[Rfam]
RNA: c-di-GMP-I riboswitch aptamer
RNA sequence: GGAGAAAAGUGGCAAACUUGUUGAAAAGCAAGGACGCAAAGCUUUAGGGGCUAACGGAAAACCUAAGCCAGCCAGCUGCCUGG
Numbered sequence: 001g002g003a004g005a006a007a008a009g010u011g012g013c014a015a016a017c018u019u020g021u022u023g024a025a026a027a028g029c030a031a032g033g034a035c036g037c038a039a040a041g042c043u044u045u046a047g048g049g050g051c052u053a054a055c056g057g058a059a060a061a062c063c064u065a066a067g068c069c070a071g072c073c074a075g076c077u078g079c080c081u082g083g
Stems, first nucleotide, its partner, number of pairs: 012037002017032006040077004047073002049069003056063002